[Rfam]
A member of the RNA family "PrrF RNA" from Halopseudomonas phragmitis, 180 nucleotides long. NCBI's taxonomy places the organism under Bacteria, Pseudomonadota, Gammaproteobacteria, Pseudomonadaceae, Halopseudomonas. Gene Ontology term of the family: sRNA-mediated gene silencing. A reference for the family is Djapgne et al. (2018), "The Pseudomonas aeruginosa PrrF1 and PrrF2 small regulatory RNAs (sRNAs) promote 2-alkyl-4-quinolone production through redundant regulation of the antR mRNA", J Bacteriol. It is annotated as a small RNA. About the family: PrrF RNA is a small RNA involved in iron homeostasis and is found exclusively in Pseudomonas species.
RNA sequence: UUGACUCUCAAAUGAUAACGAUUAUUAUUAACACCAAGUCAUCGCGAGAUGGCUUGCGAAGACUCUAAAGCGCAGUCUCCUUCAGAGUUUUCUGGAUAACAGCUUGUCGCAAGACAACGGUUAUCUCCUCAUCAGGCUAAUCACGGAUUUAAGCCCGCUCUCUGAGCGGGCUCUUUUUUU
Numbered sequence: 001u002u003g004a005c006u007c008u009c010a011a012a013u014g015a016u017a018a019c020g021a022u023u024a025u026u027a028u029u030a031a032c033a034c035c036a037a038g039u040c041a042u043c044g045c046g047a048g049a050u051g052g053c054u055u056g057c058g059a060a061g062a063c064u065c066u067a068a069a070g071c072g073c074a075g076u077c078u079c080c081u082u083c084a085g086a087g088u089u090u091u092c093u094g095g096a097u098a099a100c101a102g103c104u105u106g107u108c109g110c111a112a113g114a115c116a117a118c119g120g121u122u123a124u125c126u127c128c129u130c131a132u133c134a135g136g137c138u139a140a141u142c143a144c145g146g147a148u149u150u151a152a153g154c155c156c157g158c159u160c161u162c163u164g165a166g167c168g169g170g171c172u173c174u175u176u177u178u179u180u
Base pairs, nucleotide, nucleotide: 035056036055037054038053039052040051041050042049043048127136128135129134152172153171154170155169156168157167158166159165